[Rfam]
RNA sequence: UCUCCAUUUCACGUGCUCUCUCACCGAUCAAAGAGAUGAGAGAGUGUGUGAAAUGAAGAGA
Numbered sequence: 001u002c003u004c005c006a007u008u009u010c011a012c013g014u015g016c017u018c019u020c021u022c023a024c025c026g027a028u029c030a031a032a033g034a035g036a037u038g039a040g041a042g043a044g045u046g047u048g049u050g051a052a053a054u055g056a057a058g059a060g061a
Stems, first nucleotide, its partner, number of pairs: 001059003005055003010050001012048006019041004